A member of the RNA family "Mammalian CPEB3 ribozyme" from Alligator mississippiensis, 77 nucleotides long.
The base pairs follow the family's consensus structure, which is taken from published work.
RNA sequence: ACAGCCAAGUGCAAGACCAUAGCAGAAGUGUUCACAGCAUGGCCCUGUCAGAUUCUAAUGAAUCUUUAAAUUCUGCU
Number, nucleotide and partner (000 for none) at each position: 001a000002c000003a000004g000005c000006c000007a000008a000009g000010u000011g000012c000013a000014a000015g044016a000017c042018c041019a000020u000021a077022g076023c075024a074025g073026a072027a071028g040029u039030g038031u000032u000033c000034a000035c000036a000037g000038c030039a029040u028041g018042g017043c000044c015045c000046u000047g000048u000049c000050a065051g064052a063053u062054u061055c060056u000057a000058a000059u000060g055061a054062a053063u052064c051065u050066u000067u000068a000069a000070a000071u027072u026073c025074u024075g023076c022077u021